Rfam assigns this 188-nucleotide RNA from Acinetobacter baumannii to the family "Aar sRNA". Rfam links the family to the GO term regulation of cellular amino acid metabolic process. By type it is a small RNA. The source organism's lineage runs through Bacteria, Moraxellales, Moraxellaceae, Acinetobacter calcoaceticus/baumannii complex and Acinetobacter baumannii. For this family Rfam cites "The small RNA Aar in Acinetobacter baylyi: a putative regulator of amino acid metabolism" (Schilling et al., Arch Microbiol, 2010).
RNA sequence: UUUAACGUGAAGUAACACUAAUUAACGUGAAGCUUAAUGAACAAAUAAGAAUGCAUCACUAAUAUAACUUGAGUAGGUUGAUAUGAACCUCACGACAUUUCUCCUUAAGCCGAAACUGUUUUUAACAGAUUCGUUGUUCUACGCAGUGAUCACCCCAAUCAUUGCGUAUUUUUUUGUCUAUAAUAAUG
Numbered sequence: 001u002u003u004a005a006c007g008u009g010a011a012g013u014a015a016c017a018c019u020a021a022u023u024a025a026c027g028u029g030a031a032g033c034u035u036a037a038u039g040a041a042c043a044a045a046u047a048a049g050a051a052u053g054c055a056u057c058a059c060u061a062a063u064a065u066a067a068c069u070u071g072a073g074u075a076g077g078u079u080g081a082u083a084u085g086a087a088c089c090u091c092a093c094g095a096c097a098u099u100u101c102u103c104c105u106u107a108a109g110c111c112g113a114a115a116c117u118g119u120u121u122u123u124a125a126c127a128g129a130u131u132c133g134u135u136g137u138u139c140u141a142c143g144c145a146g147u148g149a150u151c152a153c154c155c156c157a158a159u160c161a162u163u164g165c166g167u168a169u170u171u172u173u174u175u176g177u178c179u180a181u182a183a184u185a186a187u188g
Base pairs, nucleotide, nucleotide: 013053014052019047020046022044023043026039027038028037065188066187070183072181074180075179076178077177078176079094080093111133112132113131114130116128117127118126119125141167142166143165144164145163146162147161148160149159150158